RNA: Alphaproteobacterial sRNA ar9
Organism: Aurantimonas marianensis
RNA sequence: ACAAAAAGGCGCCGGCAAGGCGCCAUAUUUGCGGUCUAGUCUUGGGAGGACGCGGUUUCCGGCGCGGCAGUCGUCGCAGCCCCGGUCAAAGUCACCGGCGGGAAAUCCAGGCACGCGACCUAGAAUGCAAGGUGAAAGCCUUGCAUUUUUUU
Number, nucleotide and partner (000 for none) at each position: 001a151002c000003a149004a000005a000006a000007a000008g024009g023010c022011g021012c020013c019014g000015g000016c000017a000018a000019g013020g012021c011022g010023c009024c008025a000026u000027a000028u000029u000030u117031g116032c115033g114034g000035u000036c000037u000038a000039g051040u050041c049042u048043u000044g000045g000046g000047a000048g042049g041050a040051c039052g000053c000054g107055g106056u105057u104058u103059c000060c000061g081062g080063c079064g077065c076066g075067g000068c000069a000070g000071u000072c000073g000074u000075c066076g065077c064078a000079g063080c062081c061082c098083c097084g096085g095086u094087c000088a000089a000090a000091g000092u000093c000094a086095c085096c084097g083098g082099c000100g000101g000102g000103a058104a057105a056106u055107c054108c000109a000110g000111g000112c000113a000114c033115g032116c031117g030118a000119c000120c000121u000122a000123g000124a000125a000126u145127g144128c143129a142130a141131g140132g139133u138134g000135a000136a000137a000138g133139c132140c131141u130142u129143g128144c127145a126146u000147u000148u000149u003150u000151u001152u000